A member of the RNA family "Group II catalytic intron D1-D4-3" from Cyanobacteria bacterium FACHB-502, 167 nucleotides long. The source organism's lineage runs through Bacteria, Bacillati and Cyanobacteriota. It scores 141 bits against the family's covariance model. The literature on the family includes a 2001 paper in Trends Genet by Bonen and Vogel, "The ins and outs of group II introns".

[Rfam]
RNA sequence: ACUUCCGCGAGGAAGGGUCUGAAGGAAGCCAGCGGCAAAUCUGCGAGCCGACGAACAGAAACGUCAUAGAAGGCUGAGACCUCUGGGGUGAGUUGGCACAACACAACAAAACCCUUCGGUUCAAGAGGCACAGUAAAUGACGCGGUUGUGCAGGGAAAGUUCACGUC
Numbered sequence: 001a002c003u004u005c006c007g008c009g010a011g012g013a014a015g016g017g018u019c020u021g022a023a024g025g026a027a028g029c030c031a032g033c034g035g036c037a038a039a040u041c042u043g044c045g046a047g048c049c050g051a052c053g054a055a056c057a058g059a060a061a062c063g064u065c066a067u068a069g070a071a072g073g074c075u076g077a078g079a080c081c082u083c084u085g086g087g088g089u090g091a092g093u094u095g096g097c098a099c100a101a102c103a104c105a106a107c108a109a110a111a112c113c114c115u116u117c118g119g120u121u122c123a124a125g126a127g128g129c130a131c132a133g134u135a136a137a138u139g140a141c142g143c144g145g146u147u148g149u150g151c152a153g154g155g156a157a158a159g160u161u162c163a164c165g166u167c
Stems, first nucleotide, its partner, number of pairs: 002015005028167001030165001035160002040154006046147005062142006073134003080128005086114004092107004